[Rfam]
RNA sequence: GAUAGUAGGUCUAUCAGUAUCGUUGAACAAGCGAAGGUACUAAACCGUCUCUUGGUGCUAUAUCAGUAAUGGUAAGGUAUUGAACAGAAAGAGGAAAAGGCUCAGAAGAUGGGUCAGGU
Numbered sequence: 001g002a003u004a005g006u007a008g009g010u011c012u013a014u015c016a017g018u019a020u021c022g023u024u025g026a027a028c029a030a031g032c033g034a035a036g037g038u039a040c041u042a043a044a045c046c047g048u049c050u051c052u053u054g055g056u057g058c059u060a061u062a063u064c065a066g067u068a069a070u071g072g073u074a075a076g077g078u079a080u081u082g083a084a085c086a087g088a089a090a091g092a093g094g095a096a097a098a099g100g101c102u103c104a105g106a107a108g109a110u111g112g113g114u115c116a117g118g119u
Stems, first nucleotide, its partner, number of pairs: 001015005016041006023034003046118001048094005053087001054081002057078003061074004099115006

Record summary:
Shown here is a 119-nucleotide sequence from Darwinula stevensoni, a member of the family "Group II catalytic intron D1-D4-2". From the family's description: Group II introns are found in rRNA, tRNA and mRNA of organelles in fungi, plants and protists, and also in mRNA in bacteria. The literature on the family includes a 2001 paper in Trends Genet by Bonen and Vogel, "The ins and outs of group II introns". A search with the family's covariance model found it, with a score of 72 bits. The organism belongs to Darwinula, within Eukaryota.